Nitrogen stress-induced RNA 1: a 52-nucleotide RNA sequence from Drouetiella hepatica. The base pairs follow the family's consensus structure. The match comes from Rfam's covariance-model search (59 bits).
[Rfam]
RNA sequence: UGGUAGAUGCACCCUGAUAGAUUUCCCCGGCCAAAAGCUGGGGAUUUUUUUU
Number, nucleotide and partner (000 for none) at each position: 001u000002g013003g012004u011005a000006g000007a000008u000009g000010c000011a004012c003013c002014c000015u000016g000017a000018u000019a000020g000021a000022u000023u000024u044025c043026c042027c041028c040029g039030g038031c037032c000033a000034a000035a000036a000037g031038c030039u029040g028041g027042g026043g025044a024045u000046u000047u000048u000049u000050u000051u000052u000